[Rfam]
RNA sequence: CUCUUAUAAAGAGAGGCGGAGGGACUGGCCCAAUGAUGCCUCGGCAACCUUUGAAUUUUAUUUCAAAAGGUGCCAAUUCCAGCAGAUUGUUUCAAUCUGAAAUAUAAGAG
Numbered sequence: 001c002u003c004u005u006a007u008a009a010a011g012a013g014a015g016g017c018g019g020a021g022g023g024a025c026u027g028g029c030c031c032a033a034u035g036a037u038g039c040c041u042c043g044g045c046a047a048c049c050u051u052u053g054a055a056u057u058u059u060a061u062u063u064c065a066a067a068a069g070g071u072g073c074c075a076a077u078u079c080c081a082g083c084a085g086a087u088u089g090u091u092u093c094a095a096u097c098u099g100a101a102a103u104a105u106a107a108g109a110g
Base pairs, nucleotide, nucleotide: 001110002109003108004107005106006105007104008103013042014041015040016039017038021031022030023029025082026081027080028079043074044073045072046071048070049069050066051065053063078102083099084098085097086096087095088094
SAM riboswitch aptamer (S box leader): a 110-nucleotide RNA sequence from Bacillus oleivorans.
On this family, see Baird et al., RNA 2012: "YbxF and YlxQ are bacterial homologs of L7Ae and bind K-turns but not K-loops".
A search with the family's covariance model found it, with a score of 107 bits.
Lineage of the source: Bacteria > Bacillati > Bacilli > Caryophanales > Bacillus.